A member of the RNA family "Small nucleolar RNA SNORA20" from Sciurus carolinensis, 130 nucleotides long. The family's RNA type in Rfam is H/ACA-box small nucleolar RNA. The family's consensus secondary structure was predicted with ILM. Rfam 15.1 lists 437 matches to the family in 157 species. The family is grouped with related families in Rfam's "SNORA20 clan". A search with the family's covariance model found it, with a score of 132 bits. Rfam links the family to the GO terms nucleolus and RNA processing. ACA20 is a member of the H/ACA class of snoRNA that guide the sites of modification of uridines to pseudouridines. Taxonomically the source falls in Sciurus (Eukaryota, Opisthokonta, Eumetazoa, Bilateria).
RNA sequence: UUUCCCAUUUAUUUGCUGCUAUAAUCUCUUGGUGAUAUGAGCAGUUAUACGCAUGGGAUAAAACAAUAUUGGGCCAUGGUAAAUUGAGAUGAAGUCACAUUUUCAUCUCUUCUGCAUGGUCUAGACAUUG
Numbered sequence: 001u002u003u004c005c006c007a008u009u010u011a012u013u014u015g016c017u018g019c020u021a022u023a024a025u026c027u028c029u030u031g032g033u034g035a036u037a038u039g040a041g042c043a044g045u046u047a048u049a050c051g052c053a054u055g056g057g058a059u060a061a062a063a064c065a066a067u068a069u070u071g072g073g074c075c076a077u078g079g080u081a082a083a084u085u086g087a088g089a090u091g092a093a094g095u096c097a098c099a100u101u102u103u104c105a106u107c108u109c110u111u112c113u114g115c116a117u118g119g120u121c122u123a124g125a126c127a128u129u130g
Base pairs, nucleotide, nucleotide: 003058004057005056006055007054008053015045016044017043018042019041020040022037023036025035026034069124070123071122072121073120074119075118076117079115080114081113086109087108088107089106090105091103092102093101094100095099